The record is a 79-nucleotide sequence from Eubucco bourcierii, which matches "Small nucleolar RNA SNORD53/SNORD92" in Rfam. Gene Ontology terms of the family: RNA processing and nucleolus. By type it is a C/D-box small nucleolar RNA. Taxonomically the source falls in Eubucco (Eukaryota, Vertebrata, Saurischia, Coelurosauria).
[Rfam]
RNA sequence: AUGCAGUGAUGAUACCUCUUUUGGUUUCGCUUUUUGCUGAAUUGCAGUGAAGACUCCUUUCUCUUGGCUGUCUGAGCGU
Numbered sequence: 001a002u003g004c005a006g007u008g009a010u011g012a013u014a015c016c017u018c019u020u021u022u023g024g025u026u027u028c029g030c031u032u033u034u035u036g037c038u039g040a041a042u043u044g045c046a047g048u049g050a051a052g053a054c055u056c057c058u059u060u061c062u063c064u065u066g067g068c069u070g071u072c073u074g075a076g077c078g079u
Stems, first nucleotide, its partner, number of pairs: 001079004